The family of this 132-nucleotide sequence from Anisodus acutangulus is "mir-172 microRNA precursor family". mir-172 has been experimentally verified in Arabidopsis thaliana. This family is thought to target mRNAs coding for APETALA2-like transcription factors. The mature sequence is excised from the 3' arm of the hairpin. It scores 77 bits against the family's covariance model. Taxonomically the source falls in Anisodus (Eukaryota, Viridiplantae, Streptophyta, Tracheophyta). The family's consensus secondary structure was predicted with PFOLD.

RNA sequence: UUGCUUGCUGGAGCAGCACCAUCAAGAUUCACAUAAAAAUAUGGAGCAAAAUUAAAAUUGAUGAAAUGAAAUUAAUAUAAUUUGCCCAAAUUUUAAACAUGAGAAUCUUGAUGAUGCUGCAUUAGCAAAUGA
Numbered sequence: 001u002u003g004c005u006u007g008c009u010g011g012a013g014c015a016g017c018a019c020c021a022u023c024a025a026g027a028u029u030c031a032c033a034u035a036a037a038a039a040u041a042u043g044g045a046g047c048a049a050a051a052u053u054a055a056a057a058u059u060g061a062u063g064a065a066a067u068g069a070a071a072u073u074a075a076u077a078u079a080a081u082u083u084g085c086c087c088a089a090a091u092u093u094u095a096a097a098c099a100u101g102a103g104a105a106u107c108u109u110g111a112u113g114a115u116g117c118u119g120c121a122u123u124a125g126c127a128a129a130u131g132a
Stems, first nucleotide, its partner, number of pairs: 010123002013120006020113011032101002